[Rfam]
XIST RNA A repeat: a 39-nucleotide RNA from Tupaia belangeri. Pairs were carried over by alignment from the consensus structure, which was predicted with CMfinder. By type it is a small RNA.
RNA sequence: UUGCCCAACGGGGCCCUGGAUACCUGCCUCUUAACUUUU
Numbered sequence: 001u002u003g004c005c006c007a008a009c010g011g012g013g014c015c016c017u018g019g020a021u022a023c024c025u026g027c028c029u030c031u032u033a034a035c036u037u038u039u
Stems, first nucleotide, its partner, number of pairs: 003014004017026003